[Rfam]
RNA: T-box leader
Organism: Ornithinibacillus bavariensis
RNA sequence: AAAGGAACGUGGAAGAGGGAAAGUAGUAGCUAGAUGGUUACACAGAGAGAAUCACCAUAGGCUGGGAGUGAUUUUAACCACUAACUAUGAAGUGCCCCUUGGAGUCCGUUAUGGAAGUAAUAGUACAUAGCGGCGGUUCUCUACCGUUAAUAGAGUCAAGUUGGAAGGAUACUUAUUGGUACCUUCAAACAGAGUGGAACCGCGCUUAGAGCGUCUCUGUG
Number, nucleotide and partner (000 for none) at each position: 001a000002a000003a000004g000005g000006a000007a105008c104009g000010u000011g000012g000013a000014a000015g100016a099017g098018g097019g000020a000021a000022a000023g000024u000025a000026g088027u087028a086029g085030c000031u083032a000033g000034a000035u000036g000037g000038u077039u076040a075041c000042a000043c000044a000045g000046a000047g000048a000049g000050a073051a072052u071053c070054a069055c068056c000057a000058u000059a000060g000061g000062c000063u000064g000065g000066g000067a000068g055069u054070g053071a052072u051073u050074u000075u040076a039077a038078c000079c000080a000081c000082u000083a031084a000085c029086u028087a027088u026089g000090a000091a000092g000093u000094g000095c000096c000097c018098c017099u016100u015101g000102g000103a000104g008105u007106c000107c132108g131109u130110u129111a128112u127113g126114g000115a000116a000117g000118u000119a000120a000121u000122a000123g000124u000125a000126c113127a112128u111129a110130g109131c108132g107133g000134c146135g145136g144137u000138u000139c000140u000141c000142u000143a000144c136145c135146g134147u000148u000149a000150a000151u000152a000153g000154a000155g000156u000157c000158a000159a000160g000161u000162u000163g000164g186165a185166a184167g183168g182169a000170u000171a000172c000173u000174u000175a000176u000177u000178g000179g000180u000181a000182c168183c167184u166185u165186c164187a000188a000189a000190c000191a218192g217193a216194g215195u000196g000197g000198a000199a000200c000201c000202g214203c213204g212205c211206u210207u000208a000209g000210a206211g205212c204213g203214u202215c194216u193217c192218u191219g000220u000221g000